[Rfam]
RNA sequence: CUGAGGGACGCGUUCGGGUCAAUUGCGGACUGCAACACCCGAUCUCUCUCCACACGCCUCCCGGACGGGAGCUGUCGGAGGGGGAGCGCGCAACCAUCAG
Numbered sequence: 001c002u003g004a005g006g007g008a009c010g011c012g013u014u015c016g017g018g019u020c021a022a023u024u025g026c027g028g029a030c031u032g033c034a035a036c037a038c039c040c041g042a043u044c045u046c047u048c049u050c051c052a053c054a055c056g057c058c059u060c061c062c063g064g065a066c067g068g069g070a071g072c073u074g075u076c077g078g079a080g081g082g083g084g085a086g087c088g089c090g091c092a093a094c095c096a097u098c099a100g
Stems, first nucleotide, its partner, number of pairs: 001100004009090005015041004023035005043085009
This 100-nucleotide sequence belongs to the Rfam family "L4-Archaeoglobi ribosomal protein leades". The family's consensus secondary structure is taken from published work. The literature on the family includes a 2020 paper in BMC Microbiol by Eckert and Weinberg, "Discovery of 20 novel ribosomal leader candidates in bacteria and archaea". By type it is a cis-regulatory leader.